[Rfam]
RNA sequence: ACGCGCGGGGUGUUUUGUCUAACCCUAAAUGUCGGUGGCCUCCUGUACAUAUUGCAGUUCGCUGUUUUCCCCUCUGCCGCUUUCAGUGAACUACAGGAGGUUUGUCCCAACUGGCGACGGUACAAGAAAAGGGAAAACCAAAAAAAAAAAAAAAAAGCGUGCAAGAUCACCCCGUCAUGCUCCGUUUUCUCUGCAGAAACCCUAGAAACACGCCGUGGUCAGCAUGGCUGCCGCGAAGAGUUGGUCUCUGCUGCUCUAGUGGUUAUUUUCCCUCUGCGAGAUUGAUUAACUGUGAGUAGAUCAAAUUGAGCAGGGUUCACACUGGCGAUCGUCUUACUUGAUCUGUCUGGAGAGACCCCACGCUCAUACAUGG
Numbered sequence: 001a002c003g004c005g006c007g008g009g010g011u012g013u014u015u016u017g018u019c020u021a022a023c024c025c026u027a028a029a030u031g032u033c034g035g036u037g038g039c040c041u042c043c044u045g046u047a048c049a050u051a052u053u054g055c056a057g058u059u060c061g062c063u064g065u066u067u068u069c070c071c072c073u074c075u076g077c078c079g080c081u082u083u084c085a086g087u088g089a090a091c092u093a094c095a096g097g098a099g100g101u102u103u104g105u106c107c108c109a110a111c112u113g114g115c116g117a118c119g120g121u122a123c124a125a126g127a128a129a130a131g132g133g134a135a136a137a138c139c140a141a142a143a144a145a146a147a148a149a150a151a152a153a154a155a156a157g158c159g160u161g162c163a164a165g166a167u168c169a170c171c172c173c174g175u176c177a178u179g180c181u182c183c184g185u186u187u188u189c190u191c192u193g194c195a196g197a198a199a200c201c202c203u204a205g206a207a208a209c210a211c212g213c214c215g216u217g218g219u220c221a222g223c224a225u226g227g228c229u230g231c232c233g234c235g236a237a238g239a240g241u242u243g244g245u246c247u248c249u250g251c252u253g254c255u256c257u258a259g260u261g262g263u264u265a266u267u268u269u270c271c272c273u274c275u276g277c278g279a280g281a282u283u284g285a286u287u288a289a290c291u292g293u294g295a296g297u298a299g300a301u302c303a304a305a306u307u308g309a310g311c312a313g314g315g316u317u318c319a320c321a322c323u324g325g326c327g328a329u330c331g332u333c334u335u336a337c338u339u340g341a342u343c344u345g346u347c348u349g350g351a352g353a354g355a356c357c358c359c360a361c362g363c364u365c366a367u368a369c370a371u372g373g
Stems, first nucleotide, its partner, number of pairs: 003176001005175008013166004039100005056092009074157002081151003180296003188281004193277004198264003202259004214235005220230004237249004308365004313359003317355002332353004